[Rfam]
RNA sequence: UCAGGUAAGAAAGUAGUUGCUGUAUUUCAUAAUGCAGAGGAAAGUCCGGACUCCAAGGGAAAAUGGUGACAGGUAACUCCUGUCGGAGGUAACUCUAGGUAUAGGACUACAGAAAAUAACCGCCUUACUAAUAAGGUAAGGGUGAAAAGGUGUGGUAAGAGCACACCGUACUUAUGGCAACAUAUAGUAGCUAAGCAACCACCACCAGGAGCAAGACUAAAAGAGAUAUAUGUGUUUUCCCUCACAAUUAUCUAGGUAAGUCGCGUGAGGUAGAUAGCAAUAUUUAUCCCAGAUGAAUAACUACACAAACAGAAUCCGGCUUACUCUUACCUGACCAU
Dot-bracket structure: ((((((((((..((((((.(((((((....)))))))....[[[.[[[[[((((....[.[[.((((((((((.....)))))(((((....)))).)((...((.((...........((((((((....))))))..)).......((((((.......))))))(((((.(((....)))..)))).)..))...)))))))))))))...((((.....(((((..((((..]].]..))))..))))).....))))......((((((((....))))))))..........))))))..........]]]]]]]]..))))))))))....
RNA: Bacterial RNase P class A
Organism: Ehrlichia ruminantium